[Rfam]
RNA sequence: CACGACCCCACGGGAGCCCUCUGCAAGGGCUGAGAUCGGACUGCAUCGUCCGAGACCGUAGAACCUGAUCCGGUUGAUACCGGCGUAGGAAGUGAGGACUGCAGAUGAC
Numbered sequence: 001c002a003c004g005a006c007c008c009c010a011c012g013g014g015a016g017c018c019c020u021c022u023g024c025a026a027g028g029g030c031u032g033a034g035a036u037c038g039g040a041c042u043g044c045a046u047c048g049u050c051c052g053a054g055a056c057c058g059u060a061g062a063a064c065c066u067g068a069u070c071c072g073g074u075u076g077a078u079a080c081c082g083g084c085g086u087a088g089g090a091a092g093u094g095a096g097g098a099c100u101g102c103a104g105a106u107g108a109c
Stems, first nucleotide, its partner, number of pairs: 006097002009094002011058003016030005037052005064089004070083004
A member of the RNA family "TPP riboswitch aptamer (THI element)" from Brevibacterium linens, 109 nucleotides long. Vitamin B(1) in its active form thiamin pyrophosphate (TPP) is an essential coenzyme that is synthesised by coupling of pyrimidine and thiazole moieties in bacteria.